[Rfam]
RNA sequence: GGGUCAAUGAUGAUGCCCUUUCUGUCAUGAAGAGUGGUGAAGACAUAAAAAUCAUGCUCAAUAGGAUUACGCUGAGGUCC
Numbered sequence: 001g002g003g004u005c006a007a008u009g010a011u012g013a014u015g016c017c018c019u020u021u022c023u024g025u026c027a028u029g030a031a032g033a034g035u036g037g038u039g040a041a042g043a044c045a046u047a048a049a050a051a052u053c054a055u056g057c058u059c060a061a062u063a064g065g066a067u068u069a070c071g072c073u074g075a076g077g078u079c080c
Stems, first nucleotide, its partner, number of pairs: 001080004005074002008071002
This 80-nucleotide sequence from Jaculus jaculus belongs to the Rfam family "Small nucleolar RNA SNORD115". Gene Ontology terms of the family: nucleolus and RNA processing. Rfam classes the family as a C/D-box small nucleolar RNA. The family's consensus secondary structure was predicted with PFOLD. The family has 32 seed sequences and 3,387 matches in Rfam 15.1. For this family Rfam cites "Identification of brain-specific and imprinted small nucleolar RNA genes exhibiting an unusual genomic organization" (Cavaille et al., Proc Natl Acad Sci U S A, 2000).